[Rfam]
RNA sequence: GAGUGUUGCAGUGAUGAAGCUUACAGUGGACUAGAGUUUCUGACAUUCUGGUUGAAGACAAACCCUUGGCUGUCUGAGCACACUC
Numbered sequence: 001g002a003g004u005g006u007u008g009c010a011g012u013g014a015u016g017a018a019g020c021u022u023a024c025a026g027u028g029g030a031c032u033a034g035a036g037u038u039u040c041u042g043a044c045a046u047u048c049u050g051g052u053u054g055a056a057g058a059c060a061a062a063c064c065c066u067u068g069g070c071u072g073u074c075u076g077a078g079c080a081c082a083c084u085c
Stems, first nucleotide, its partner, number of pairs: 001085005007080003037057004044050002
Rfam assigns this 85-nucleotide RNA sequence from Carnegiea gigantea to the family "Small nucleolar RNA Z157/R69/R10". The family's RNA type in Rfam is C/D-box small nucleolar RNA. The literature on the family includes a 2003 paper in Nucleic Acids Res by Chen et al., "The high diversity of snoRNAs in plants: identification and comparative study of 120 snoRNA genes from Oryza sativa". The match comes from Rfam's covariance-model search (63 bits). Pairs were carried over by alignment from the consensus structure, which was predicted with PFOLD.